[Rfam]
RNA sequence: AAAAAUCUUUGGGGAAUGGUGUAAAUCCAUACCGGCAGUUAUAGUCUGCGAACGCCUUCGGGCGCCGAUGAGGUGAAACUCCUCAACCGACGGUACAGUCCGGAUGAGAAAAGAUUUGC
Numbered sequence: 001a002a003a004a005a006u007c008u009u010u011g012g013g014g015a016a017u018g019g020u021g022u023a024a025a026u027c028c029a030u031a032c033c034g035g036c037a038g039u040u041a042u043a044g045u046c047u048g049c050g051a052a053c054g055c056c057u058u059c060g061g062g063c064g065c066c067g068a069u070g071a072g073g074u075g076a077a078a079c080u081c082c083u084c085a086a087c088c089g090a091c092g093g094u095a096c097a098g099u100c101c102g103g104a105u106g107a108g109a110a111a112a113g114a115u116u117u118g119c
Stems, first nucleotide, its partner, number of pairs: 003117008017029003031099002033089002035049004044087002053064002069085005091102003